Shown here is a 556-nucleotide part of an RNA from Lachnospiraceae bacterium 3_1_57FAA_CT1, a member of the family "Bacterial large subunit ribosomal RNA".
RNA sequence: UGUAAAGAGCACAAGGUGGAUGCCUUGGCACUAAGAGCCGAUGAAAGACGUGAUAAGCUGCGAAAAGCUGCGGUGAGGAGCAAAUAUCCUUUGACCCGCAGAUGUCUGAAUGGGGAAACCCGGCGGAGCAAACCUCCGUCACCGUAUUCUGAAUCCAUAGGGAUGCGGGGGGAACCCGGUGAACUGAAACAUCUAAGUAGCCGGAGGAAGAGAAAGAAAAUAUAUCGAUUCUGUGAGUAGCGGCGAGCGAAAACGGAAGAGCCCAAACCAGCGUGCGUGCAUGCUGGGGUUCGGACUGCAUACGUUACAGAUGCGGUUAGCAGAACGGUCCUGGAAAGACCGGCCAGAGAGGGUGAAAGCCCCGUAAGCGAAAACCAAGUUUGGACAGCAGGAUCCAGAGUACCACGAGACACGAGAAACCUUGUGGGAAUAAGCGGGGACCACCCCGUAAGGCUAAAUACUCCUUAGUGACCGAUAGCGCAUAGUACUGUGAAGGAAAGGUGAAAAGGACCCCGGGAGGGGAGUGAAAGAGAACCUGAAACCUUGUGUUUACAAG
Numbered sequence: 001u002g003u004a005a006a007g008a009g010c011a012c013a014a015g016g017u018g019g020a021u022g023c024c025u026u027g028g029c030a031c032u033a034a035g036a037g038c039c040g041a042u043g044a045a046a047g048a049c050g051u052g053a054u055a056a057g058c059u060g061c062g063a064a065a066a067g068c069u070g071c072g073g074u075g076a077g078g079a080g081c082a083a084a085u086a087u088c089c090u091u092u093g094a095c096c097c098g099c100a101g102a103u104g105u106c107u108g109a110a111u112g113g114g115g116a117a118a119c120c121c122g123g124c125g126g127a128g129c130a131a132a133c134c135u136c137c138g139u140c141a142c143c144g145u146a147u148u149c150u151g152a153a154u155c156c157a158u159a160g161g162g163a164u165g166c167g168g169g170g171g172g173a174a175c176c177c178g179g180u181g182a183a184c185u186g187a188a189a190c191a192u193c194u195a196a197g198u199a200g201c202c203g204g205a206g207g208a209a210g211a212g213a214a215a216g217a218a219a220a221u222a223u224a225u226c227g228a229u230u231c232u233g234u235g236a237g238u239a240g241c242g243g244c245g246a247g248c249g250a251a252a253a254c255g256g257a258a259g260a261g262c263c264c265a266a267a268c269c270a271g272c273g274u275g276c277g278u279g280c281a282u283g284c285u286g287g288g289g290u291u292c293g294g295a296c297u298g299c300a301u302a303c304g305u306u307a308c309a310g311a312u313g314c315g316g317u318u319a320g321c322a323g324a325a326c327g328g329u330c331c332u333g334g335a336a337a338g339a340c341c342g343g344c345c346a347g348a349g350a351g352g353g354u355g356a357a358a359g360c361c362c363c364g365u366a367a368g369c370g371a372a373a374a375c376c377a378a379g380u381u382u383g384g385a386c387a388g389c390a391g392g393a394u395c396c397a398g399a400g401u402a403c404c405a406c407g408a409g410a411c412a413c414g415a416g417a418a419a420c421c422u423u424g425u426g427g428g429a430a431u432a433a434g435c436g437g438g439g440a441c442c443a444c445c446c447c448g449u450a451a452g453g454c455u456a457a458a459u460a461c462u463c464c465u466u467a468g469u470g471a472c473c474g475a476u477a478g479c480g481c482a483u484a485g486u487a488c489u490g491u492g493a494a495g496g497a498a499a500g501g502u503g504a505a506a507a508g509g510a511c512c513c514c515g516g517g518a519g520g521g522g523a524g525u526g527a528a529a530g531a532g533a534a535c536c537u538g539a540a541a542c543c544u545u546g547u548g549u550u551u552a553c554a555a556g
Stems, first nucleotide, its partner, number of pairs: 007551010022536001023501002027473002029470007036462002038171002046107003049062003068101006077089003112121003122140007142168009175206001176204005186193002216226002229458001230257005240248002260455004268287007293396002296391004306385001308383005315376004320369002326342004331338001345349001351363003403427007434449005488495002511522004
Dot-bracket structure: ......((((((((((.....(((..(((((((((((((......((((((........))).....((((((...(((.......)))......))))))...)))....(((....)))(((((((.....))))))).(((((((((.........))))))))).))...((((((.....((....))......))))).).........((.......))..((((((.....((.....))....)))))..((((....(((((((......))))))).....((.((((......(.(((((..((((.((....((((.(......)))))..(...).(((.......)))....))...))))..))))).)..))))...))......(((((((...........)))))))......(((((......)))))..))))..)..)).))))))).))..............((....))....)).........((((....)))).............).....)))))))))).....